[Rfam]
RNA sequence: GGGGCGGUGGUCUAGUUUGGUCUAGGAUACCAGCUUCGGGACCACUUUGGCGAAAGAGCUGGUGGACCGGGGUUCAAAUCCCCGCCGCCCCA
Numbered sequence: 001g002g003g004g005c006g007g008u009g010g011u012c013u014a015g016u017u018u019g020g021u022c023u024a025g026g027a028u029a030c031c032a033g034c035u036u037c038g039g040g041a042c043c044a045c046u047u048u049g050g051c052g053a054a055a056g057a058g059c060u061g062g063u064g065g066a067c068c069g070g071g072g073u074u075c076a077a078a079u080c081c082c083c084g085c086c087g088c089c090c091c092a
Stems, first nucleotide, its partner, number of pairs: 001091007010028004030062007068084005
RNA: tRNA